[Rfam]
The record is a 99-nucleotide RNA sequence from Caenorhabditis latens, which matches "mir-36 microRNA precursor family" in Rfam. It scores 65 bits against the family's covariance model. A reference for the family is Ohler et al. (2004), "Patterns of flanking sequence conservation and a characteristic upstream motif for microRNA gene identification", RNA. Its Rfam clan is "mir-36 clan". The family has 46 seed sequences and 199 matches in Rfam 15.1. Its family is annotated with RISC complex and miRNA-mediated post-transcriptional gene silencing in the Gene Ontology.

Nucleotides: 099
Stems, first nucleotide, its partner, number of pairs: 016089007024081007032073006039067001041065002044062003
Number, partner (000 for none) and nucleotide at each position: 001000u002000a003000u004000u005000c006000c007000c008000a009000g010000c011000a012000g013000g014000a015000u016089u017088g018087g019086a020085c021084c022083u023000u024081u025080g026079c027078u028077g029076g030075u031000u032073u033072u034071c035070g036069c037068c038000u039067c040000g041065g042064u043000u044062a045061u046060a047000u048000u049000u050000c051000u052000a053000g054000u055000a056000u057000g058000a059000u060046u061045a062044u063000c064042a065041c066000c067039g068037g069036g070035u071034g072033a073032a074000c075030a076029u077028c078027g079026g080025u081024g082000c083022a084021g085020g086019u087018c088017c089016a090000a091000u092000c093000c094000u095000g096000c097000u098000a099000c